[Rfam]
RNA sequence: AUGUUGGAUGAUGAAUAAAUCAGACGGAUUCCCAUUGAUCAUUAUGAAGUGAAAUUGUUAACUAGCUACUUCUGACACAU
Numbered sequence: 001a002u003g004u005u006g007g008a009u010g011a012u013g014a015a016u017a018a019a020u021c022a023g024a025c026g027g028a029u030u031c032c033c034a035u036u037g038a039u040c041a042u043u044a045u046g047a048a049g050u051g052a053a054a055u056u057g058u059u060a061a062c063u064a065g066c067u068a069c070u071u072c073u074g075a076c077a078c079a080u
Base pairs, nucleotide, nucleotide: 001080002079003078004077006076
RNA: Small nucleolar RNA R12
Organism: Apostasia shenzhenica